This 139-nucleotide sequence from Candidatus Jettenia caeni belongs to the Rfam family "Group II catalytic intron D1-D4-4". The literature on the family includes a 2001 paper in Trends Genet by Bonen and Vogel, "The ins and outs of group II introns". Pairs were carried over by alignment from the consensus structure. The organism belongs to Candidatus Jettenia, within Bacteria. The family has 90 seed sequences and 840 matches in Rfam 15.1. About the family: Group II introns are found in rRNA, tRNA and mRNA of organelles in fungi, plants and protists, and also in mRNA in bacteria.

RNA sequence: UAGCGGGUGAAAGUCCCGUCAUGGUAAAAGCCUGAGCCAUGUAGCUUGGAUGGCAGGAGGAUAGGGAAACAUUACCUUCUGAAGCCCAUCGACAAAGUCGGCGUAAGGCCGGUGAGCAACUAGCCGGGUCGUAACGUAC
Numbered sequence: 001u002a003g004c005g006g007g008u009g010a011a012a013g014u015c016c017c018g019u020c021a022u023g024g025u026a027a028a029a030g031c032c033u034g035a036g037c038c039a040u041g042u043a044g045c046u047u048g049g050a051u052g053g054c055a056g057g058a059g060g061a062u063a064g065g066g067a068a069a070c071a072u073u074a075c076c077u078u079c080u081g082a083a084g085c086c087c088a089u090c091g092a093c094a095a096a097g098u099c100g101g102c103g104u105a106a107g108g109c110c111g112g113u114g115a116g117c118a119a120c121u122a123g124c125c126g127g128g129u130c131g132u133a134a135c136g137u138a139c
Base pairs, nucleotide, nucleotide: 020041021040022039023038024037049090050089051088052087053086054081055080056079057078058077059076063072065070097113098112099111100110101109102108116132117131
Dot-bracket structure: ...................(((((............))))).......(((((((((((...(.(....).)...))))))....)))))......((((((.....))))))..((.............)).......